The family of this 119-nucleotide RNA sequence from Actinocrispum wychmicini is "Group II catalytic intron D1-D4-2". The base pairs follow the family's consensus structure. Group II introns are found in rRNA, tRNA and mRNA of organelles in fungi, plants and protists, and also in mRNA in bacteria. The match comes from Rfam's covariance-model search (100 bits). The source organism's lineage runs through Bacteria, Bacillati, Actinomycetes, Pseudonocardiales and Actinocrispum. Gene Ontology term of the family: Group II intron splicing.
RNA sequence: GAAGGUUGGCCCUUCGGCAUCGUUCUGCAGGGGAUGGUGUCAAACCGCCAUGAGCUGCUGCGUUGAAUGAGGCGUGGUGGUGAGCGUCAUGGAGAAGGUCGCACAGGAUGCGGCAAGGU
Numbered sequence: 001g002a003a004g005g006u007u008g009g010c011c012c013u014u015c016g017g018c019a020u021c022g023u024u025c026u027g028c029a030g031g032g033g034a035u036g037g038u039g040u041c042a043a044a045c046c047g048c049c050a051u052g053a054g055c056u057g058c059u060g061c062g063u064u065g066a067a068u069g070a071g072g073c074g075u076g077g078u079g080g081u082g083a084g085c086g087u088c089a090u091g092g093a094g095a096a097g098g099u100c101g102c103a104c105a106g107g108a109u110g111c112g113g114c115a116a117g118g119u
Stems, first nucleotide, its partner, number of pairs: 001015005016041006023034004046118001048092006054081002057078003061074004098114005
Dot-bracket structure: (((((.....)))))((((((.((((....)))).))))))....(.((((((((.(((.((((......)))).))).)).....)))))).....(((((.......)))))...).